[Rfam]
RNA: sRNA-Xcc1
Organism: Pseudomonas sp. StFLB209
RNA sequence: GUCGGGAGUGGGCUAAUACAAGACCCGUAAGGGGAAUAUGUCCGGCCCUCUGUGUGGGGUUUCUUAGCUCCCGGCGCCUUAGC
Numbered sequence: 001g002u003c004g005g006g007a008g009u010g011g012g013c014u015a016a017u018a019c020a021a022g023a024c025c026c027g028u029a030a031g032g033g034g035a036a037u038a039u040g041u042c043c044g045g046c047c048c049u050c051u052g053u054g055u056g057g058g059g060u061u062u063c064u065u066a067g068c069u070c071c072c073g074g075c076g077c078c079u080u081a082g083c
Stems, first nucleotide, its partner, number of pairs: 001075008010043004014038002024033003044061006